[Rfam]
Nucleotides: 172
Stems, first nucleotide, its partner, number of pairs: 020050008029041001059091005067080004092110006116162007130147007
Number, partner (000 for none) and nucleotide at each position: 001000u002000a003000a004000g005000u006000u007000u008000u009000u010000a011000a012000a013000g014000c015000g016000c017000c018000a019000g020050a021049a022048c023047u024046a025045u026044u027043u028000u029041c030000c031000g032000u033000c034000c035000g036000c037000a038000a039000u040000g041029g042000a043027a044026a045025a046024u047023a048022g049021u050020u051000g052000a053000c054000g055000a056000g057000g058000u059091g060090g061089g062088g063087g064000u065000u066000a067080u068079c069078g070077a071000a072000u073000u074000u075000u076000u077070u078069c079068g080067g081000c082000g083000g084000g085000u086000a087063c088062c089061u090060c091059c092110c093109g094108a095107u096106u097105g098000c099000a100000c101000a102000u103000c104000u105097c106096a107095g108094u109093c110092g111000u112000c113000a114000g115000g116162c117161u118160u119159u120158u121157u122156u123000c124000u125000c126000a127000a128000a129000a130147c131146a132145a133144u134143g135142g136141g137000g138000u139000g140000a141136c142135u143134c144133a145132u146131u147130g148000c149000a150000c151000a152000a153000a154000g155000g156122g157121a158120a159119g160118a161117a162116g163000u164000a165000a166000g167000a168000u169000g170000u171000c172000c

Shown here is a 172-nucleotide sequence from Virgibacillus sp. SK37, a member of the family "glmS glucosamine-6-phosphate activated ribozyme aptamer". Rfam classes the family as a riboswitch. About the family: This entry contains a glucosamine-6-phosphate activated ribozyme that is found in the mRNA for GlmS. GlmS is an enzyme that uses fructose-6-phosphate and glutamine to generate glucosamine-6-phosphate. The ribozyme catalyses self cleavage of the glmS mRNA that is thought to regulate GlmS activity. A search with the family's covariance model found it, with a score of 114 bits.